[Rfam]
RNA: Small nucleolar RNA SNORA48
Organism: Pelusios castaneus
RNA sequence: CACCCCUGCAUACUGGGCAAAGAGGCACCUGGUUGAUGGUGCUGUUCUUAAAUCCAGCAGGGGGAGAGAAAUGCAUCCCUGUUCAUCCCAGCCCAGUAUCCUGGCCCAUAACUGUUGCUGGUUCAUGCUGGGGGCACAUGA
Numbered sequence: 001c002a003c004c005c006c007u008g009c010a011u012a013c014u015g016g017g018c019a020a021a022g023a024g025g026c027a028c029c030u031g032g033u034u035g036a037u038g039g040u041g042c043u044g045u046u047c048u049u050a051a052a053u054c055c056a057g058c059a060g061g062g063g064g065a066g067a068g069a070a071a072u073g074c075a076u077c078c079c080u081g082u083u084c085a086u087c088c089c090a091g092c093c094c095a096g097u098a099u100c101c102u103g104g105c106c107c108a109u110a111a112c113u114g115u116u117g118c119u120g121g122u123u124c125a126u127g128c129u130g131g132g133g134g135c136a137c138a139u140g141a
Stems, first nucleotide, its partner, number of pairs: 003063006015054002020049003024043006080136005095129003102125003106121003111116001